[Rfam]
The record is a 124-nucleotide sequence from Prevotella veroralis, which matches "FMN riboswitch aptamer (RFN element)" in Rfam.
The organism belongs to Prevotella veroralis, within Bacteria.
The family's consensus secondary structure is taken from published work.
The match comes from Rfam's covariance-model search (113 bits).
Nucleotides: 124
Stems, first nucleotide, its partner, number of pairs: 003122008017029003031104002033093002035048004043091002052068002073089005095107003
Number, partner (000 for none) and nucleotide at each position: 001000g002000g003122a004121u005120u006119c007118u008117u009116c010115a011000g012000g013000g014000g015000c016000a017029g018028g019027g020000u021000g022000a023000a024000a025000u026000u027019c028018c029017u030000u031104a032103c033093c034092g035048g036047c037046g038045g039000u040000a041000u042000a043091g044090u045038c046037c047036g048035c049000g050000a051000c052068u053067u054000c055000u056000a057000u058000u059000u060000u061000u062000a063000a064000u065000a066000g067053a068052a069000c070000u071000g072000a073089u074088u075087u076086g077085g078000u079000g080000a081000a082000a083000u084000u085077c086076c087075a088074a089073a090044a091043c092034c093033g094000a095107c096106a097105g098000u099000u100000a101000u102000a103032g104031u105097c106096u107095g108000g109000a110000u111000g112000g113000u114000a115010u116009g117008a118007a119006g120005a121004a122003u123000u124000a